[Rfam]
TPP riboswitch aptamer (THI element): a 111-nucleotide RNA sequence from Clostridium manihotivorum. The family's consensus secondary structure is taken from published work. Its family is annotated with thiamine pyrophosphate binding in the Gene Ontology.
RNA sequence: UACUUAACACAGGGGUGUUGGAUAGGCCAACUGAGAUUAAGAUCCGUAAAUCUUUGACCCUAAAACCUGAACUGGGUAAUGCCAGCGUAGGAAGUUGUUUAUCUGAAAGAU
Numbered sequence: 001u002a003c004u005u006a007a008c009a010c011a012g013g014g015g016u017g018u019u020g021g022a023u024a025g026g027c028c029a030a031c032u033g034a035g036a037u038u039a040a041g042a043u044c045c046g047u048a049a050a051u052c053u054u055u056g057a058c059c060c061u062a063a064a065a066c067c068u069g070a071a072c073u074g075g076g077u078a079a080u081g082c083c084a085g086c087g088u089a090g091g092a093a094g095u096u097g098u099u100u101a102u103c104u105g106a107a108a109g110a111u
Stems, first nucleotide, its partner, number of pairs: 006099004011061004017031005039054004066091004072085004